[Rfam]
Rfam assigns this 111-nucleotide RNA from Cuscuta australis to the family "Small nucleolar RNA Z107/R87". Gene Ontology terms of the family: nucleolus and RNA processing. The family's consensus secondary structure was predicted with RNAfold. For this family Rfam cites "Identification of 66 box C/D snoRNAs in Arabidopsis thaliana: extensive gene duplications generated multiple isoforms predicting new ribosomal RNA 2'-O-methylation sites" (Barneche et al., J Mol Biol, 2001). A search with the family's covariance model found it, with a score of 83 bits.
RNA sequence: GAUCACAGUGAUGACUUGCAAUAUUCAAGCUCAACAGACCAGAACGAGGCUCCCCUCAUGGAAUGGGUUAAAAGAGUUUGCUUAUCGAUUACCCCGCUGAACUGAGUGAUC
Numbered sequence: 001g002a003u004c005a006c007a008g009u010g011a012u013g014a015c016u017u018g019c020a021a022u023a024u025u026c027a028a029g030c031u032c033a034a035c036a037g038a039c040c041a042g043a044a045c046g047a048g049g050c051u052c053c054c055c056u057c058a059u060g061g062a063a064u065g066g067g068u069u070a071a072a073a074g075a076g077u078u079u080g081c082u083u084a085u086c087g088a089u090u091a092c093c094c095c096g097c098u099g100a101a102c103u104g105a106g107u108g109a110u111c
Stems, first nucleotide, its partner, number of pairs: 001111006